About this RNA: Rfam assigns this 81-nucleotide RNA from Lentivirus humimdef1 to the family "HIV gag stem loop 3 (GSL3)". This family consists of several HIV gag stem loop 3 (GSL3) sequences. GSL3 is known to direct specific packaging of HIV-1 genomic RNA. Deletion of GSL3 leads to decreases in both viral RNA packaging and dimerisation. The source organism's lineage runs through Viruses, Riboviria, Revtraviricetes, Orthoretrovirinae and Lentivirus humimdef1. Its family is annotated with viral RNA genome packaging in the Gene Ontology. On this family, see Rong et al., Virology 2003: "Deletion of stem-loop 3 is compensated by second-site mutations within the Gag protein of human immunodeficiency virus type 1".
RNA sequence: GGCCAGGGGGAAGAAAAUUUAGAAUGAAACAUUUAGUAUGGGCAAGCAGGGAGCUGGACAGAUUUGCACUCAACCCUGACC
Dot-bracket structure: ((.(((((.................................................................))))).))